[Rfam]
RNA sequence: AACUUAUCAAGAGAGGUAUGAGAGACGCGGCUCGUUAUUAGUACCCGGCAACCUGUAUAAAAAUACAAGGUGCCAAUUCCCGGCAUAUUAAAUGCGAAGAUAAGAA
Numbered sequence: 001a002a003c004u005u006a007u008c009a010a011g012a013g014a015g016g017u018a019u020g021a022g023a024g025a026c027g028c029g030g031c032u033c034g035u036u037a038u039u040a041g042u043a044c045c046c047g048g049c050a051a052c053c054u055g056u057a058u059a060a061a062a063a064u065a066c067a068a069g070g071u072g073c074c075a076a077u078u079c080c081c082g083g084c085a086u087a088u089u090a091a092a093u094g095c096g097a098a099g100a101u102a103a104g105a106a
Base pairs, nucleotide, nucleotide: 003104004103005102006101007100008099013046015045016044017043018042022033023032024031029080030079047074048073049072050071052070053069054067055066056065057064078098083095084094085093086092
Rfam assigns this 106-nucleotide sequence from Pseudoleptotrichia goodfellowii to the family "SAM riboswitch aptamer (S box leader)". Its Rfam clan is "SAM clan". Taxonomically the source falls in Pseudoleptotrichia goodfellowii (Bacteria, Fusobacteriia, Leptotrichiaceae, Pseudoleptotrichia). The base pairs follow the family's consensus structure, which is taken from published work. The SAM riboswitch is found upstream of a number of genes which code for proteins involved in methionine or cysteine biosynthesis in Gram-positive bacteria.